Annotation:
Manganese Mn2+ riboswitch aptamer (yybP-ykoY): a 173-nucleotide sequence from Pararhodospirillum photometricum. Rfam 15.1 lists 1,126 matches to the family in 1,062 species. The base pairs follow the family's consensus structure. On this family, see Argaman et al., Curr Biol 2001: "Novel small RNA-encoding genes in the intergenic regions of Escherichia coli".
[Rfam]
RNA sequence: CCCUUACGCAUUGGGGAGUAGCCUCCCUUCCAGAGAGAAGGGGGAUGCGUCAACAUCCUUGGGUCCUGGACCCAUGGCGCAUCCGGCGAUUGCUUGGCCAGACCUUUGACGUCGAUCGCUUCACCAAGGGGGCUUGGGCGGGGGGUCGUCGUCAUUCGUCGUGACCGCCCAGC
Numbered sequence: 001c002c003c004u005u006a007c008g009c010a011u012u013g014g015g016g017a018g019u020a021g022c023c024u025c026c027c028u029u030c031c032a033g034a035g036a037g038a039a040g041g042g043g044g045a046u047g048c049g050u051c052a053a054c055a056u057c058c059u060u061g062g063g064u065c066c067u068g069g070a071c072c073c074a075u076g077g078c079g080c081a082u083c084c085g086g087c088g089a090u091u092g093c094u095u096g097g098c099c100a101g102a103c104c105u106u107u108g109a110c111g112u113c114g115a116u117c118g119c120u121u122c123a124c125c126a127a128g129g130g131g132g133c134u135u136g137g138g139c140g141g142g143g144g145g146u147c148g149u150c151g152u153c154a155u156u157c158g159u160c161g162u163g164a165c166c167g168c169c170c171a172g173c
Base pairs, nucleotide, nucleotide: 026041027040028039043084044083045082046081047080048079049078050077051076052075060074061073062072063071064070